[Rfam]
RNA sequence: GGAUCCGUAGCCUAGUCUGGACAAGGCGACGGCCUUCGGAGCCGUAGAUCAGGGGUUCAAAUCCUCUCGGGUCCG
Numbered sequence: 001g002g003a004u005c006c007g008u009a010g011c012c013u014a015g016u017c018u019g020g021a022c023a024a025g026g027c028g029a030c031g032g033c034c035u036u037c038g039g040a041g042c043c044g045u046a047g048a049u050c051a052g053g054g055g056u057u058c059a060a061a062u063c064c065u066c067u068c069g070g071g072u073c074c075g
Stems, first nucleotide, its partner, number of pairs: 001074007010027004029045005051067005
A member of the RNA family "tRNA" from archaeon SCG-AAA382B04, 75 nucleotides long. From the family's description: Transfer RNA (tRNA) molecules are approximately 80 nucleotides in length. The family's RNA type in Rfam is transfer RNA. It scores 64 bits against the family's covariance model.